[Rfam]
RNA sequence: UUGCACAAGCAGAAGCACCCGCUUCUCACCUUUCGGUUCAGCCGGCUGGUUCGCGAUAAUCGACUAAAAGCUUAUCGAGUUACUUCCUUGGUGAAGAUAACGAGGGCGGCCACAAUGAACGGUUAUACAAUGCGGGUUCGUGCGAACCCGCAUUUUUUAUUUUGU
Numbered sequence: 001u002u003g004c005a006c007a008a009g010c011a012g013a014a015g016c017a018c019c020c021g022c023u024u025c026u027c028a029c030c031u032u033u034c035g036g037u038u039c040a041g042c043c044g045g046c047u048g049g050u051u052c053g054c055g056a057u058a059a060u061c062g063a064c065u066a067a068a069a070g071c072u073u074a075u076c077g078a079g080u081u082a083c084u085u086c087c088u089u090g091g092u093g094a095a096g097a098u099a100a101c102g103a104g105g106g107c108g109g110c111c112a113c114a115a116u117g118a119a120c121g122g123u124u125a126u127a128c129a130a131u132g133c134g135g136g137u138u139c140g141u142g143c144g145a146a147c148c149c150g151c152a153u154u155u156u157u158u159a160u161u162u163u164g165u
Stems, first nucleotide, its partner, number of pairs: 011026006028092003131152009
The family of this 165-nucleotide RNA sequence from Paenibacillus catalpae is "Ribosomal protein L20 leader". The source organism's lineage runs through Bacteria, Bacillati, Bacillota, Caryophanales and Paenibacillus. Pairs were carried over by alignment from the consensus structure, which was predicted with CMfinder. The family's RNA type in Rfam is cis-regulatory leader. The literature on the family includes a 1994 paper in Prog Nucleic Acid Res Mol Biol by Zengel and Lindahl, "Diverse mechanisms for regulating ribosomal protein synthesis in Escherichia coli". Rfam describes the family as follows. This family is a putative r-protein leader autoregulatory structure found in B. subtilis and other low-GC Gram-positive bacteria.